Shown here is a 102-nucleotide RNA sequence from Psychrobacillus sp. FJAT-21963, a member of the family "Purine riboswitch aptamer". The source organism's lineage runs through Bacteria, Bacillati, Caryophanales, Bacillaceae and Psychrobacillus. The literature on the family includes a 2003 paper in Cell by Mandal et al., "Riboswitches Control Fundamental Biochemical Pathways in Bacillus subtilis and Other Bacteria". The match comes from Rfam's covariance-model search (82 bits).

RNA sequence: AUCAUAAUUUGAAUAUGUCGUCGUAUAACGUUGGGAAUAAGGCCCAAAAGUCUCUACCGAAUCACCGUAAAUGAUUCGACUACGAUUAGUUUGAAAGUGUAA
Numbered sequence: 001a002u003c004a005u006a007a008u009u010u011g012a013a014u015a016u017g018u019c020g021u022c023g024u025a026u027a028a029c030g031u032u033g034g035g036a037a038u039a040a041g042g043c044c045c046a047a048a049a050g051u052c053u054c055u056a057c058c059g060a061a062u063c064a065c066c067g068u069a070a071a072u073g074a075u076u077c078g079a080c081u082a083c084g085a086u087u088a089g090u091u092u093g094a095a096a097g098u099g100u101a102a
Stems, first nucleotide, its partner, number of pairs: 018088001020086006031047005058078007